[Rfam]
RNA sequence: UCGGUUCCGGUUCACGCUCGAAAGCCAUCAGGUUAGGGCUCGGGCGACCCGGCGACC
Numbered sequence: 001u002c003g004g005u006u007c008c009g010g011u012u013c014a015c016g017c018u019c020g021a022a023a024g025c026c027a028u029c030a031g032g033u034u035a036g037g038g039c040u041c042g043g044g045c046g047a048c049c050c051g052g053c054g055a056c057c
Stems, first nucleotide, its partner, number of pairs: 003057003007052004015046007

L31-Actinobacteria ribosomal protein leader: a 57-nucleotide RNA from Mycobacterium sp. URHB0044. Taxonomically the source falls in Mycobacterium (Bacteria, Actinomycetota, Mycobacteriales, Mycobacteriaceae). The base pairs follow the family's consensus structure, which is taken from published work. It is annotated as a cis-regulatory leader.